[Rfam]
RNA sequence: AGCUUUGCCCAGUGGCAGUAUUGUAGCCAACGAGGUUUAUCCGAGGCACAAUUAUUGCUAAUUAAAUAGGACUUUAUUACUGUUAUUGUCAGGUUGGACUUACUGUGAAAUGAUCGAGUCUUACAUAGUUUCAGAAAUGUCUUAAAAU
Numbered sequence: 001a002g003c004u005u006u007g008c009c010c011a012g013u014g015g016c017a018g019u020a021u022u023g024u025a026g027c028c029a030a031c032g033a034g035g036u037u038u039a040u041c042c043g044a045g046g047c048a049c050a051a052u053u054a055u056u057g058c059u060a061a062u063u064a065a066a067u068a069g070g071a072c073u074u075u076a077u078u079a080c081u082g083u084u085a086u087u088g089u090c091a092g093g094u095u096g097g098a099c100u101u102a103c104u105g106u107g108a109a110a111u112g113a114u115c116g117a118g119u120c121u122u123a124c125a126u127a128g129u130u131u132c133a134g135a136a137a138u139g140u141c142u143u144a145a146a147a148u
Stems, first nucleotide, its partner, number of pairs: 020052005026047003034042002085126002088124002091121005097115001142147001
The family of this 148-nucleotide sequence from Neogale vison is "U4 spliceosomal RNA". Rfam describes the family as follows. U4 small nuclear RNA (U4 snRNA) is a component of the major U2-dependent spliceosome. Its family is annotated with spliceosomal tri-snRNP complex assembly and U4 snRNP in the Gene Ontology. Clan: U4 clan. Pairs were carried over by alignment from the consensus structure, which is taken from published work.